[Rfam]
RNA sequence: CCUGUUGUUCCGCCAACAGUAGCCUACCGACACACAUUUCGCCGGUAACGGAGGGGUGUGAAGCUGUCGGGACAAUGAAGCCGAGUUUGUGAACUCAGUCCGAUCCGAGAGGGUACGGAUUGCCUCUGCGAGCGUCACUGCGGAGGGGGCG
Numbered sequence: 001c002c003u004g005u006u007g008u009u010c011c012g013c014c015a016a017c018a019g020u021a022g023c024c025u026a027c028c029g030a031c032a033c034a035c036a037u038u039u040c041g042c043c044g045g046u047a048a049c050g051g052a053g054g055g056g057u058g059u060g061a062a063g064c065u066g067u068c069g070g071g072a073c074a075a076u077g078a079a080g081c082c083g084a085g086u087u088u089g090u091g092a093a094c095u096c097a098g099u100c101c102g103a104u105c106c107g108a109g110a111g112g113g114u115a116c117g118g119a120u121u122g123c124c125u126c127u128g129c130g131a132g133c134g135u136c137a138c139u140g141c142g143g144a145g146g147g148g149g150c151g
Base pairs, nucleotide, nucleotide: 002019003018004017005016006015007014028069029068030067031066032065033060034059035058036057037056038055039054040053042051043050044049083096084095085094086093087092097121098120099119100118105112106111125144126143127142128141129140130139
Dot-bracket structure: .((((((......))))))........(((((((((((((.(((....))).))))))))....))))).............(((((....)))))((((....((....)).....))))...((((((........)))))).......

Rfam assigns this 151-nucleotide sequence from Apophysomyces sp. BC1034 to the family "Group II catalytic intron D1-D4-7". The match comes from Rfam's covariance-model search (113 bits). Rfam 15.1 lists 1,296 matches to the family in 705 species. Its family is annotated with Group II intron splicing in the Gene Ontology. NCBI's taxonomy places the organism under Eukaryota, Opisthokonta, Mucoromycetes, Mucoraceae, Apophysomyces. About the family: Group II introns are found in rRNA, tRNA and mRNA of organelles in fungi, plants and protists, and also in mRNA in bacteria.